The record is a 125-nucleotide RNA from Brassica carinata, which matches "MIR9563 microRNA precursor family" in Rfam. The family's consensus secondary structure was predicted with RNAalifold.
RNA sequence: AUAAUAUAAGAAUCUGACUCUUAACUUUUAAUUAAAAAAACUAAGAAUCGGCUCUUAAAUUAGAGUUUUAAGAGACGGUUCUUAAUUUUUUUAGUUAAAAGUUAAAAGACAGGUUUUUAUAUUCC
Numbered sequence: 001a002u003a004a005u006a007u008a009a010g011a012a013u014c015u016g017a018c019u020c021u022u023a024a025c026u027u028u029u030a031a032u033u034a035a036a037a038a039a040a041c042u043a044a045g046a047a048u049c050g051g052c053u054c055u056u057a058a059a060u061u062a063g064a065g066u067u068u069u070a071a072g073a074g075a076c077g078g079u080u081c082u083u084a085a086u087u088u089u090u091u092u093a094g095u096u097a098a099a100a101g102u103u104a105a106a107a108g109a110c111a112g113g114u115u116u117u118u119a120u121a122u123u124c125c
Stems, first nucleotide, its partner, number of pairs: 003123014018108002021105019042084006